[Rfam]
RNA sequence: UGCUUAGAUCACUAGGGUUCCGGUCCGCGUCGAGCACGCGGAUGCAUCACUGGUCCGAGAGUGGUCGGCCUUCCUUCGGCGGAGGGCUACACGGAGGGAUAAAAGCCCGGGAGAU
Numbered sequence: 001u002g003c004u005u006a007g008a009u010c011a012c013u014a015g016g017g018u019u020c021c022g023g024u025c026c027g028c029g030u031c032g033a034g035c036a037c038g039c040g041g042a043u044g045c046a047u048c049a050c051u052g053g054u055c056c057g058a059g060a061g062u063g064g065u066c067g068g069c070c071u072u073c074c075u076u077c078g079g080c081g082g083a084g085g086g087c088u089a090c091a092c093g094g095a096g097g098g099a100u101a102a103a104a105g106c107c108c109g110g111g112a113g114a115u
Stems, first nucleotide, its partner, number of pairs: 007066006015056002020053002022050001023043008067088008090110001092113001096108003
This 115-nucleotide RNA from Plasticicumulans acidivorans belongs to the Rfam family "Guanidine-I riboswitch aptamer". A search with the family's covariance model found it, with a score of 84 bits. Its family is annotated with regulation of gene expression in the Gene Ontology.